[Rfam]
The record is a 113-nucleotide RNA sequence from Shewanella intestini, which matches "Ribosomal S15 leader" in Rfam. On this family, see Benard et al., Biochimie 1996: "Pseudoknot and translational control in the expression of the S15 ribosomal protein". The E. coli Ribosomal S15 gene 5' UTR can form two alternative structures. One that is a series of three hairpins, The other includes a pseudoknot. This structure causes translational regulation of the S15 protein. The alignment of this family contains only the final two hairpins which are conserved in other species, and also includes the complete region that forms the alternate structures. Clan: Ribosomal Protein S15 Leader clan. The family's consensus secondary structure is taken from published work. By type it is a cis-regulatory leader. Its family is annotated with regulation of translation, ncRNA-mediated in the Gene Ontology. The organism belongs to Shewanella, within Bacteria.
RNA sequence: CGCUUUGGCUGAGUUAGUGAUCGGCUAAGGUUAAUUUAUAUAUUUUGGAGAUUUUCAUGUCACUAAGUAAUGAACAAAAAGCUAAAAUCGUUGCUGAAUUUGGUCGUGGUGAG
Number, nucleotide and partner (000 for none) at each position: 001c000002g000003c000004u000005u000006u000007g026008g025009c024010u023011g022012a021013g000014u000015u000016a000017g000018u000019g000020a000021u012022c011023g010024g009025c008026u007027a000028a000029g000030g000031u000032u000033a000034a000035u000036u000037u000038a000039u000040a000041u000042a000043u000044u067045u066046u065047g064048g063049a000050g061051a000052u000053u000054u000055u000056c000057a000058u000059g000060u000061c050062a000063c048064u047065a046066a045067g044068u000069a000070a000071u000072g000073a000074a000075c000076a000077a000078a000079a000080a000081g000082c000083u000084a000085a000086a000087a000088u000089c000090g000091u000092u000093g000094c000095u000096g000097a000098a000099u000100u000101u000102g000103g000104u000105c000106g000107u000108g000109g000110u000111g000112a000113g000